[Rfam]
RNA sequence: CAAUGAAAUUUGUCCUUCGGGCAAGUGAAAUACCGCUGCGCGGUGUGAAAUUUUGCUGCACAACAUGAAAUACGCU
Numbered sequence: 001c002a003a004u005g006a007a008a009u010u011u012g013u014c015c016u017u018c019g020g021g022c023a024a025g026u027g028a029a030a031u032a033c034c035g036c037u038g039c040g041c042g043g044u045g046u047g048a049a050a051u052u053u054u055g056c057u058g059c060a061c062a063a064c065a066u067g068a069a070a071u072a073c074g075c076u
Base pairs, nucleotide, nucleotide: 008026009025010024011023012022013021014020015019030046031045032044033043034042035041050066051065053063054062055061
The record is a 76-nucleotide sequence from Ruminococcaceae bacterium BL-6, which matches "Gut-1 RNA" in Rfam. The match comes from Rfam's covariance-model search (73 bits). It is annotated as a small RNA.